[Rfam]
RNA sequence: ACCUGCAUCGAUAGUGAUCUUGGCAUCCUCGUUGCCUGGUCAUCGAUACUGCAGGAAAAGUAACCUGAAAGCAUUUCCCGUGUUUGUAUGGGUCAGUGUUAUCCCUUUCAAACCUCGUGGCUUUCAGACA
Numbered sequence: 001a002c003c004u005g006c007a008u009c010g011a012u013a014g015u016g017a018u019c020u021u022g023g024c025a026u027c028c029u030c031g032u033u034g035c036c037u038g039g040u041c042a043u044c045g046a047u048a049c050u051g052c053a054g055g056a057a058a059a060g061u062a063a064c065c066u067g068a069a070a071g072c073a074u075u076u077c078c079c080g081u082g083u084u085u086g087u088a089u090g091g092g093u094c095a096g097u098g099u100u101a102u103c104c105c106u107u108u109c110a111a112a113c114c115u116c117g118u119g120g121c122u123u124u125c126a127g128a129c130a
Stems, first nucleotide, its partner, number of pairs: 002055006014043006022036004064127001066126007082113005088106001090104002